Rfam assigns this 121-nucleotide sequence from Arthrobacter sp. Leaf69 to the family "mraW RNA". The family's RNA type in Rfam is cis-regulatory element. Taxonomically the source falls in Arthrobacter (Bacteria, Bacillati, Actinomycetes, Micrococcaceae). It scores 54 bits against the family's covariance model.
RNA sequence: GCACGAUUCUUGACCGAGAUCUCCAGCCGCCCAUCCCGCGGAUCUUCCUGGCUCACUUCCCCGGAGCCAGGCGGACGCAGGAUAGGCGCGGAUGGGGAUCUGGAUCAAGAAGCGGCGGACA
Numbered sequence: 001g002c003a004c005g006a007u008u009c010u011u012g013a014c015c016g017a018g019a020u021c022u023c024c025a026g027c028c029g030c031c032c033a034u035c036c037c038g039c040g041g042a043u044c045u046u047c048c049u050g051g052c053u054c055a056c057u058u059c060c061c062c063g064g065a066g067c068c069a070g071g072c073g074g075a076c077g078c079a080g081g082a083u084a085g086g087c088g089c090g091g092a093u094g095g096g097g098a099u100c101u102g103g104a105u106c107a108a109g110a111a112g113c114g115g116c117g118g119a120c121a
Stems, first nucleotide, its partner, number of pairs: 010108004015103001018100002021097005027091004031085001033083004038078002047071008